[Rfam]
RNA sequence: CCCGAGGCUAGAGUCACGCUCAGGUAUUGAUUGUUGCCUUAGUGUGCUAGAGUCCUCGAAGAAUAACUGCUAACCUUAUUCACUGACUGUGGACUUUCUGACACGGUCAGUCACCAGGUUAGUGACAUGC
Numbered sequence: 001c002c003c004g005a006g007g008c009u010a011g012a013g014u015c016a017c018g019c020u021c022a023g024g025u026a027u028u029g030a031u032u033g034u035u036g037c038c039u040u041a042g043u044g045u046g047c048u049a050g051a052g053u054c055c056u057c058g059a060a061g062a063a064u065a066a067c068u069g070c071u072a073a074c075c076u077u078a079u080u081c082a083c084u085g086a087c088u089g090u091g092g093a094c095u096u097u098c099u100g101a102c103a104c105g106g107u108c109a110g111u112c113a114c115c116a117g118g119u120u121a122g123u124g125a126c127a128u129g130c
Stems, first nucleotide, its partner, number of pairs: 003058004007053003012048002015046006023038004070122007082111005088105004
RNA: Small nucleolar RNA SNORA3/SNORA45 family
Organism: Microtus ochrogaster